[Rfam]
Archaeal signal recognition particle RNA: a 312-nucleotide sequence from Methanolacinia petrolearia. It scores 196 bits against the family's covariance model. A reference for the family is Rosenblad et al. (2003), "SRPDB: Signal Recognition Particle Database", Nucleic Acids Res. The source organism's lineage runs through Archaea, Methanobacteriati, Methanobacteriota, Methanomicrobiaceae and Methanolacinia petrolearia. Clan: SRP clan.
RNA sequence: UUGGGAACUAGCCCGGGUGGUUAGGCGUCACCUGUAACCCGAAACCGCCAUUAUGCGGGGGGCGAAUGACCGGGACGGCUUUGGCGAUCCUGUCAUAGCCUGAUAAUUCCAACUGAGAAGCCUUGUCCUGUGAGACUAGCGGAGGAGGAUCGAUAUUCCGGAGGGAAUGGAGACUUUUUGCCGUGGGGACCGGUUCAGGCCCGGAAGGGAGCAGACUUACCAUGGACGUCUGGUGCCCACAGGGUUGCAGGGUGGAGGAGGAGUUCCAGGUGCCGGCAGGACACGUAAUUCCAACCCGGCUCGCGUUCCCGU
Numbered sequence: 001u002u003g004g005g006a007a008c009u010a011g012c013c014c015g016g017g018u019g020g021u022u023a024g025g026c027g028u029c030a031c032c033u034g035u036a037a038c039c040c041g042a043a044a045c046c047g048c049c050a051u052u053a054u055g056c057g058g059g060g061g062g063c064g065a066a067u068g069a070c071c072g073g074g075a076c077g078g079c080u081u082u083g084g085c086g087a088u089c090c091u092g093u094c095a096u097a098g099c100c101u102g103a104u105a106a107u108u109c110c111a112a113c114u115g116a117g118a119a120g121c122c123u124u125g126u127c128c129u130g131u132g133a134g135a136c137u138a139g140c141g142g143a144g145g146a147g148g149a150u151c152g153a154u155a156u157u158c159c160g161g162a163g164g165g166a167a168u169g170g171a172g173a174c175u176u177u178u179u180g181c182c183g184u185g186g187g188g189a190c191c192g193g194u195u196c197a198g199g200c201c202c203g204g205a206a207g208g209g210a211g212c213a214g215a216c217u218u219a220c221c222a223u224g225g226a227c228g229u230c231u232g233g234u235g236c237c238c239a240c241a242g243g244g245u246u247g248c249a250g251g252g253u254g255g256a257g258g259a260g261g262a263g264u265u266c267c268a269g270g271u272g273c274c275g276g277c278a279g280g281a282c283a284c285g286u287a288a289u290u291c292c293a294a295c296c297c298g299g300c301u302c303g304c305g306u307u308c309c310c311g312u
Stems, first nucleotide, its partner, number of pairs: 002311007011063004015033007038059004043054001068301001070299005077292002081288001084284001088281007098274001099270004105265006113257002120253007127243006134236001135234005140228002142178003147175001150173002154169006181225006192217004200209003
Gene Ontology terms of the family: signal recognition particle, plasma membrane targeting and SRP-dependent cotranslational protein targeting to membrane, signal sequence recognition.